RNA sequence: CUCUUAUCAAGAGCAGGCGGAGGGACGAGCCCAAUGAAGCCCGGCAACCGGCGAUGACGCACGGUGCUAAUUCUUGCAGCGAUACGCUGAGAGAUAAGAG
Numbered sequence: 001c002u003c004u005u006a007u008c009a010a011g012a013g014c015a016g017g018c019g020g021a022g023g024g025a026c027g028a029g030c031c032c033a034a035u036g037a038a039g040c041c042c043g044g045c046a047a048c049c050g051g052c053g054a055u056g057a058c059g060c061a062c063g064g065u066g067c068u069a070a071u072u073c074u075u076g077c078a079g080c081g082a083u084a085c086g087c088u089g090a091g092a093g094a095u096a097a098g099a100g
Stems, first nucleotide, its partner, number of pairs: 001100008013042001016041003022032003026076004043068004048064002051060003072092001077089005
The family of this 100-nucleotide RNA from Anoxybacteroides amylolyticum is "SAM riboswitch aptamer (S box leader)". The family's consensus secondary structure is taken from published work. The source organism's lineage runs through Bacteria, Bacillati, Bacillota, Caryophanales and Anoxybacteroides. Rfam links the family to the GO term regulation of gene expression.